[Rfam]
RNA: Betaproteobacteria-1 RNA
RNA sequence: AUUGAUGUUGGACGGGGAACAAACCACACCAGCGAUAUCAGUCGUAAGCAGACUGGGGGUAAGUAGAUGUAACACUGCACAUAUCGGUGGCGAAGCUAGUGCCGAUUCUACGAACGACUGGCGGGU
Number, nucleotide and partner (000 for none) at each position: 001a042002u041003u040004g039005a038006u037007g036008u035009u034010g033011g000012a000013c000014g000015g000016g000017g000018a000019a000020c000021a000022a000023a000024c000025c000026a000027c000028a000029c056030c055031a054032g053033c010034g009035a008036u007037a006038u005039c004040a003041g002042u001043c000044g000045u000046a000047a000048g078049c077050a076051g075052a000053c032054u031055g030056g029057g000058g000059g000060u000061a000062a000063g000064u110065a109066g108067a107068u000069g000070u000071a000072a000073c000074a000075c051076u050077g049078c048079a000080c000081a000082u000083a106084u105085c104086g103087g102088u101089g000090g000091c000092g000093a000094a000095g122096c121097u120098a119099g118100u117101g088102c087103c086104g085105a084106u083107u067108c066109u065110a064111c000112g000113a000114a000115c000116g000117a100118c099119u098120g097121g096122c095123g000124g000125g000126u000